[Rfam]
RNA sequence: AGGAGGGGAACAUCGGCUAAAACCGCCACGUCCUGUGGCAACGCCGAUAUGACCAACAUCCUGUUGG
Numbered sequence: 001a002g003g004a005g006g007g008g009a010a011c012a013u014c015g016g017c018u019a020a021a022a023c024c025g026c027c028a029c030g031u032c033c034u035g036u037g038g039c040a041a042c043g044c045c046g047a048u049a050u051g052a053c054c055a056a057c058a059u060c061c062u063g064u065u066g067g
Base pairs, nucleotide, nucleotide: 012048013047014046015045016044017043025039026038027037028036029035053067054066055065056064057063
Shown here is a 67-nucleotide RNA sequence from Peribacillus faecalis, a member of the family "Bacillaceae-1 RNA". The family's consensus secondary structure is taken from published work. The family's RNA type in Rfam is small RNA.